[Rfam]
RAGATH-18 RNA: a 62-nucleotide sequence from Lysinibacillus sphaericus. A search with the family's covariance model found it, with a score of 63 bits.
RNA sequence: CUUGUGGAGUGUUAUAGCAACCAAAAGUAGCUUAGGCAAAAUCGGGCACGGAGAAGCAAGAA
Numbered sequence: 001c002u003u004g005u006g007g008a009g010u011g012u013u014a015u016a017g018c019a020a021c022c023a024a025a026a027g028u029a030g031c032u033u034a035g036g037c038a039a040a041a042u043c044g045g046g047c048a049c050g051g052a053g054a055a056g057c058a059a060g061a062a
Stems, first nucleotide, its partner, number of pairs: 001060005009049005022044001024042001030037002
Lineage of the source: Bacteria > Bacillota > Caryophanales > Bacillaceae > Lysinibacillus. Pairs were carried over by alignment from the consensus structure, which is taken from published work. Actinobacteria, Firmicutes, Fusobacteria, Thermotogae (1 example).